[Rfam]
RNA: TPP riboswitch aptamer (THI element)
Nucleotides: 136
Stems, first nucleotide, its partner, number of pairs: 006124005011085004016079001017031005038078002091116003097110004
Number, partner (000 for none) and nucleotide at each position: 001000c002000g003000u004000c005000u006124g007123u008122c009121c010120g011085a012084g013083g014082g015000g016079c017031g018030c019029c020028g021027c022000u023000g024000u025000u026000c027021g028020c029019g030018g031017c032000u033000g034000a035000g036000a037000c038078g039077g040000c041000a042000g043000g044000c045000u046000u047000g048000g049000a050000u051000g052000c053000g054000u055000c056000c057000a058000u059000u060000c061000g062000g063000a064000c065000g066000c067000g068000u069000u070000c071000u072000g073000g074000c075000a076000u077039c078038c079016g080000a081000a082014c083013c084012c085011u086000u087000c088000g089000a090000a091116c092115c093114u094000g095000a096000u097110c098109c099108g100107g101000g102000u103000c104000a105000u106000g107100c108099c109098g110097g111000c112000g113000a114093a115092g116091g117000g118000a119000c120010u121009g122008g123007a124006c125000g126000u127000u128000u129000g130000c131000a132000g133000c134000c135000c136000c